[Rfam]
RNA: Small nucleolar RNA SNORA1
RNA sequence: AGCCCCAUUCUGGAUUAGAAGGGACACUGUUCAUUGGUGUCCAGAAUUGGUCAAUGUGGCUAAAAUUGAGACACAGGUCAUACUUCCAUCACAGUAAAUAUUUACAGUGGUGACAAUGAGGCCUGUGACAUCU
Dot-bracket structure: .(((.(((.............((((((.........))))))...........))).)))............(((((.........((((((..............)))))).........))))).......